[Rfam]
RNA sequence: AUUCAAUCUUUCCUUUUCACUCAUAUAAUAGCGGGGAUAUGGCCCGCGAGUUUCUACCGGAUUACCGUAAAUGAUCCGACUAUGGGUGAGCAAUGAUAGGUG
Numbered sequence: 001a002u003u004c005a006a007u008c009u010u011u012c013c014u015u016u017u018c019a020c021u022c023a024u025a026u027a028a029u030a031g032c033g034g035g036g037a038u039a040u041g042g043c044c045c046g047c048g049a050g051u052u053u054c055u056a057c058c059g060g061a062u063u064a065c066c067g068u069a070a071a072u073g074a075u076c077c078g079a080c081u082a083u084g085g086g087u088g089a090g091c092a093a094u095g096a097u098a099g100g101u102g
Stems, first nucleotide, its partner, number of pairs: 018088008029049001031047005058078007

The family of this 102-nucleotide RNA from Rossellomorea vietnamensis is "Purine riboswitch aptamer". The family's consensus secondary structure is taken from published work. Taxonomically the source falls in Rossellomorea (Bacteria, Bacillati, Bacilli, Bacillaceae).